The record is a 109-nucleotide RNA sequence from Ustilago trichophora, which matches "tRNA" in Rfam. Pairs were carried over by alignment from the consensus structure, which is taken from published work.
[Rfam]
RNA sequence: UCCGAAUUAGUUUAGUGGCUAUGACGGCGCCUUGUCAUCUUCGGAUGCUUCAACCAAGUUCUCCGCGCAUAAUACGGCGCAGACCCGGGUUCAAUUCCCGGAUUCGGAG
Numbered sequence: 001u002c003c004g005a006a007u008u009a010g011u012u013u014a015g016u017g018g019c020u021a022u023g024a025c026g027g028c029g030c031c032u033u034g035u036c037a038u039c040u041u042c043g044g045a046u047g048c049u050u051c052a053a054c055c056a057a058g059u060u061c062u063c064c065g066c067g068c069a070u071a072a073u074a075c076g077g078c079g080c081a082g083a084c085c086c087g088g089g090u091u092c093a094a095u096u097c098c099c100g101g102a103u104u105c106g107g108a109g
Stems, first nucleotide, its partner, number of pairs: 001108007010025003027080005085101005